[Rfam]
RNA sequence: UUCAUUGUUGUCAAUGAUGUAUUCUUGUUUGGACUGAAUCUAAGUGAUCUCACUCAAGUAUUCGUCACUACCACUGAGACAACAAUGAA
Numbered sequence: 001u002u003c004a005u006u007g008u009u010g011u012c013a014a015u016g017a018u019g020u021a022u023u024c025u026u027g028u029u030u031g032g033a034c035u036g037a038a039u040c041u042a043a044g045u046g047a048u049c050u051c052a053c054u055c056a057a058g059u060a061u062u063c064g065u066c067a068c069u070a071c072c073a074c075u076g077a078g079a080c081a082a083c084a085a086u087g088a089a
Stems, first nucleotide, its partner, number of pairs: 001089012
The record is an 89-nucleotide RNA from Phyllostomus discolor, which matches "Small nucleolar RNA SNORD70" in Rfam. Rfam describes the family as follows. snoRNA HBII-234 belongs to the C/D family of snoRNAs. It is the human orthologue of the mouse MBII-234 and is predicted to guide 2'O-ribose methylation of the small 18S rRNA on position A512. It is hosted, together with HBII-95, by the core C/D box snoRNA protein encoding gene NOP5/NOP58. Rfam links the family to the GO terms RNA processing and nucleolus. Lineage of the source: Eukaryota > Bilateria > Chordata > Euteleostomi > Phyllostomus. It is annotated as a C/D-box small nucleolar RNA. The family has 21 seed sequences and 1,085 matches in Rfam 15.1.